[Rfam]
Nucleotides: 061
Stems, first nucleotide, its partner, number of pairs: 017045005023039005
Number, partner (000 for none) and nucleotide at each position: 001000u002000g003000c004000g005000a006000c007000c008000c009000c010000c011000a012000u013000c014000a015000a016000a017045g018044g019043g020042g021041u022000c023039g024038u025037u026036c027035c028000c029000c030000a031000a032000c033000c034000a035027g036026g037025a038024g039023c040000a041021a042020c043019c044018u045017u046000c047000c048000c049000a050000u051000a052000u053000u054000c055000c056000g057000a058000a059000u060000u061000c